A member of the RNA family "drum RNA", 112 nucleotides long.
About the family: Firmicutes, Bacteroidetes (1 example), Proteobacteria (2 examples), Spirochaetes (2 examples).
The sequence is in the family's curated seed alignment.
Rfam classes the family as a small RNA.
RNA sequence: UGGCAAUGAAGCAGCAGACUGGUUUGGUGUCAUCCGCUUGCGGAGCCAGACUAUGGGUUAAGUGGAAAUCACAAGCCGAAUAGAUUCAACAAAUCGAAAGAAAACGCUUAAC
Numbered sequence: 001u002g003g004c005a006a007u008g009a010a011g012c013a014g015c016a017g018a019c020u021g022g023u024u025u026g027g028u029g030u031c032a033u034c035c036g037c038u039u040g041c042g043g044a045g046c047c048a049g050a051c052u053a054u055g056g057g058u059u060a061a062g063u064g065g066a067a068a069u070c071a072c073a074a075g076c077c078g079a080a081u082a083g084a085u086u087c088a089a090c091a092a093a094u095c096g097a098a099a100g101a102a103a104a105c106g107c108u109u110a111a112c
Base pairs, nucleotide, nucleotide: 001048002047003046004045011041012040013039014038017035020032021031024079025078026077027076062107063106064105083095084094085093086092